[Rfam]
RNA sequence: AGUAUUUAGGUCUGUGGUUGAAAGUCCAAGCCAGUCGCGGGCAAAAGGAUCCACGUAAGCUACUCCUAAAAAUUGGAGAGUGAGCAUGGCGCGGCUUAGAGGUAAGUCCUGCCGAGAAAAUCGAGAGGAUUAGUAGUGCGGUAACCCCAAAGCGAAAGUUCCAGCAGGCGAGUGUGGGGUCAAAGACCAGGUCAGCUAAAUACA
Numbered sequence: 001a002g003u004a005u006u007u008a009g010g011u012c013u014g015u016g017g018u019u020g021a022a023a024g025u026c027c028a029a030g031c032c033a034g035u036c037g038c039g040g041g042c043a044a045a046a047g048g049a050u051c052c053a054c055g056u057a058a059g060c061u062a063c064u065c066c067u068a069a070a071a072a073u074u075g076g077a078g079a080g081u082g083a084g085c086a087u088g089g090c091g092c093g094g095c096u097u098a099g100a101g102g103u104a105a106g107u108c109c110u111g112c113c114g115a116g117a118a119a120a121u122c123g124a125g126a127g128g129a130u131u132a133g134u135a136g137u138g139c140g141g142u143a144a145c146c147c148c149a150a151a152g153c154g155a156a157a158g159u160u161c162c163a164g165c166a167g168g169c170g171a172g173u174g175u176g177g178g179g180u181c182a183a184a185g186a187c188c189a190g191g192u193c194a195g196c197u198a199a200a201u202a203c204a
Stems, first nucleotide, its partner, number of pairs: 002203008012195003015189005028175001030173001031041001033096007050089002058081001064076001087182001108168005113123003127161004136153002140146001
Dot-bracket structure: .((((((((..((((((((........(.([.(((((((.]........((......(.....(...........)....).....[)))))))))...........((((((((.....)))...((((.....((..(.....).....))....))))..)))))....).)......]..)))))...))))))))))).
The record is a 204-nucleotide RNA sequence, which matches "raiA RNA" in Rfam. It is one of the family's seed sequences. Rfam classes the family as a riboswitch.